About this RNA: A member of the RNA family "FMN riboswitch aptamer (RFN element)" from Ilyobacter polytropus, 117 nucleotides long. It scores 109 bits against the family's covariance model.
RNA sequence: AAGAUCUUUAGGGGCGGGGUGUAAUUCCCCACCGGCGGUAUAGUCCGCUAAGGCUUUUGCCUUGAUUCGGUGAAAUUCCGAAACCGACAGUUAUAGUCUGGAUAGGAUAGAGAUCAC
Numbered sequence: 001a002a003g004a005u006c007u008u009u010a011g012g013g014g015c016g017g018g019g020u021g022u023a024a025u026u027c028c029c030c031a032c033c034g035g036c037g038g039u040a041u042a043g044u045c046c047g048c049u050a051a052g053g054c055u056u057u058u059g060c061c062u063u064g065a066u067u068c069g070g071u072g073a074a075a076u077u078c079c080g081a082a083a084c085c086g087a088c089a090g091u092u093a094u095a096g097u098c099u100g101g102a103u104a105g106g107a108u109a110g111a112g113a114u115c116a117c
Base pairs, nucleotide, nucleotide: 003115004114005113006112007111008110009109010108017029018028019027031097032096033086034085035048036047037046038045043084044083051062052061053060066082067081068080069079070078088100089099090098